The record is a 357-nucleotide RNA from Metallococcus carri, which matches "Bacterial RNase P class A" in Rfam. On this family, see Frank and Pace, Annu Rev Biochem 1998: "Ribonuclease P: unity and diversity in a tRNA processing ribozyme". NCBI's taxonomy places the organism under Bacteria, Bacillati, Actinomycetota, Dermacoccaceae, Metallococcus. The family's RNA type in Rfam is ribozyme.
[Rfam]
RNA sequence: UGAGUCGGCCGGGCGGCCGCGUCGCGCUUCGCGAGGAGCGCGCCGAGGAAAGUCCGGGCUCCGCAGAGCAAGGUGGUGGCUAACGGCCACCCGGGGUGACCCGCGGGACAGUGCCACAGAAAAUAGACCGCCCGUUCGCGAGGACGGGUAAGGGUGAAACGGUGGUGUAAGAGACCACCAGCGCCCCAGGUGACUGGGGCGGCUCGGUAAACCCCACCUGGAGCAAGACCGCACAGCACGCGCCCGAGGGCUGCUCGCCCGAUGCGUGCGGGUAGGUCGCUGGAGGCUGUCGGCAACGGCAGCCCGGAGAUGGAUGGUCGCCGAUCACAGAACCCGGCUUACAGGCCGACUCAUCCG
Numbered sequence: 001u002g003a004g005u006c007g008g009c010c011g012g013g014c015g016g017c018c019g020c021g022u023c024g025c026g027c028u029u030c031g032c033g034a035g036g037a038g039c040g041c042g043c044c045g046a047g048g049a050a051a052g053u054c055c056g057g058g059c060u061c062c063g064c065a066g067a068g069c070a071a072g073g074u075g076g077u078g079g080c081u082a083a084c085g086g087c088c089a090c091c092c093g094g095g096g097u098g099a100c101c102c103g104c105g106g107g108a109c110a111g112u113g114c115c116a117c118a119g120a121a122a123a124u125a126g127a128c129c130g131c132c133c134g135u136u137c138g139c140g141a142g143g144a145c146g147g148g149u150a151a152g153g154g155u156g157a158a159a160c161g162g163u164g165g166u167g168u169a170a171g172a173g174a175c176c177a178c179c180a181g182c183g184c185c186c187c188a189g190g191u192g193a194c195u196g197g198g199g200c201g202g203c204u205c206g207g208u209a210a211a212c213c214c215c216a217c218c219u220g221g222a223g224c225a226a227g228a229c230c231g232c233a234c235a236g237c238a239c240g241c242g243c244c245c246g247a248g249g250g251c252u253g254c255u256c257g258c259c260c261g262a263u264g265c266g267u268g269c270g271g272g273u274a275g276g277u278c279g280c281u282g283g284a285g286g287c288u289g290u291c292g293g294c295a296a297c298g299g300c301a302g303c304c305c306g307g308a309g310a311u312g313g314a315u316g317g318u319c320g321c322c323g324a325u326c327a328c329a330g331a332a333c334c335c336g337g338c339u340u341a342c343a344g345g346c347c348g349a350c351u352c353a354u355c356c357g
Base pairs, nucleotide, nucleotide: 001353002352003351004350005349006348007347008346009345010344011342012322013321014320015319016318017317018316020045021044023042024041025040026039027038028037050340051339052338054337055336056335057334058333059223060222061221062220066256067255068254069253071219072218073217074216075215076090077089078088079087080086091105092103093102094101095100106214107213111212112211113208114207115206128153129152130149131148132147133146134145135144136143137142161179162178163177164176165175166174181203182201183200184199185198186197187196188195189194227278228277229276230275236269237268238267239266240265241264248260249259250258251257285304286303287302288301289300290299291298292297